RNA: mir-234 microRNA precursor family
Organism: Nippostrongylus brasiliensis
RNA sequence: GCGGACGGUAUUCAGAGGCUAAUAAUACGCCGCUACGAUAUUAUUGCUCGAGAAUACCCUUUGC
Numbered sequence: 001g002c003g004g005a006c007g008g009u010a011u012u013c014a015g016a017g018g019c020u021a022a023u024a025a026u027a028c029g030c031c032g033c034u035a036c037g038a039u040a041u042u043a044u045u046g047c048u049c050g051a052g053a054a055u056a057c058c059c060u061u062u063g064c
Stems, first nucleotide, its partner, number of pairs: 008057006017048003021045007